The family of this 116-nucleotide sequence from Aceticella autotrophica is "FMN riboswitch aptamer (RFN element)". Its family is annotated with FMN binding in the Gene Ontology. Rfam's curators write: The RFN element is a highly conserved domain that is found frequently in the 5'-untranslated regions of prokaryotic mRNAs that encode for flavin mononucleotide (FMN) biosynthesis and transport proteins. This element is a metabolite-dependent riboswitch that directly binds FMN in the absence of proteins. In Bacillus subtilis, the riboswitch most likely controls gene expression by causing premature transcription termination within the 5' untranslated region of the ribDEAHT operon and precluding access to the ribosome-binding site of ypaA mRNA.The FMN riboswitch structure, reported in present an FMN-bound six-stem junction, adopts a butterfly-like scaffold, stapled together by opposingly directed but nearly identically folded peripheral domains.
RNA sequence: AUAGACCUUCAGGGAUCGGUGAAAUUCCGUACCGGCGGUAAAGCCCGCAAGCCUUAUGGCAGAUCUGGUGUAAUUCCGGAGCCGACAGUAAAAAGUCUGGAUGGAAGAAGGAAAAA
Number, nucleotide and partner (000 for none) at each position: 001a000002u000003a000004g000005a000006c111007c110008u109009u108010c107011a000012g000013g000014g000015a000016u000017c029018g028019g027020u000021g000022a000023a000024a000025u000026u000027c019028c018029g017030u000031a096032c095033c084034g083035g048036c047037g046038g045039u000040a000041a000042a000043g082044c081045c038046c037047g036048c035049a000050a000051g060052c059053c058054u000055u000056a000057u000058g053059g052060c051061a000062g000063a000064u080065c079066u078067g077068g076069u000070g000071u000072a000073a000074u000075u000076c068077c067078g066079g065080a064081g044082c043083c034084g033085a000086c099087a098088g097089u000090a000091a000092a000093a000094a000095g032096u031097c088098u087099g086100g000101a000102u000103g000104g000105a000106a000107g010108a009109a008110g007111g006112a000113a000114a000115a000116a000